Rfam assigns this 83-nucleotide RNA from Bacillus infantis to the family "c-di-GMP-I riboswitch aptamer". The organism belongs to Bacillus infantis, within Bacteria.
RNA sequence: CUAUAUAAGUGGCAAAUUUUAUGAAAGUAAAAGACGCAAAGCUGCGGGCCUAAGGCUUUUGCUAUGGCAGCCGGGCUGCUUGC
Dot-bracket structure: ...........((...((((((....))))))...))..((((.((((((....((....))...)))..)))))))......
Numbered sequence: 001c002u003a004u005a006u007a008a009g010u011g012g013c014a015a016a017u018u019u020u021a022u023g024a025a026a027g028u029a030a031a032a033g034a035c036g037c038a039a040a041g042c043u044g045c046g047g048g049c050c051u052a053a054g055g056c057u058u059u060u061g062c063u064a065u066g067g068c069a070g071c072c073g074g075g076c077u078g079c080u081u082g083c
Stems, first nucleotide, its partner, number of pairs: 012037002017032006040077004045073003048068003055062002